A member of the RNA family "Plasmodium RNA of unknown function RUF2" from Plasmodium chabaudi, 154 nucleotides long.
By type it is a small RNA.
On this family, see Chakrabarti et al., RNA 2007: "Structural RNAs of known and unknown function identified in malaria parasites by comparative genomics and RNA analysis".

[Rfam]
RNA sequence: UUCAUUGAACAUUUCGAAGGGCUAUUAUGAAAAUAUUUAUUUAAAUAUUUUUAAACAAAUAAUAGCAUCAAAUUUGUUCAUAAAACAAAUGUAUAUACGGUGGCUUUUUAAAUUUUUAAUUUUAAAAGUGUCAAUCCAUAUAUAUCACAGCACC
Numbered sequence: 001u002u003c004a005u006u007g008a009a010c011a012u013u014u015c016g017a018a019g020g021g022c023u024a025u026u027a028u029g030a031a032a033a034u035a036u037u038u039a040u041u042u043a044a045a046u047a048u049u050u051u052u053a054a055a056c057a058a059a060u061a062a063u064a065g066c067a068u069c070a071a072a073u074u075u076g077u078u079c080a081u082a083a084a085a086c087a088a089a090u091g092u093a094u095a096u097a098c099g100g101u102g103g104c105u106u107u108u109u110a111a112a113u114u115u116u117u118a119a120u121u122u123u124a125a126a127a128g129u130g131u132c133a134a135u136c137c138a139u140a141u142a143u144a145u146c147a148c149a150g151c152a153c154c
Stems, first nucleotide, its partner, number of pairs: 006080006021066008034057001036055004091145007099137002101133004105128008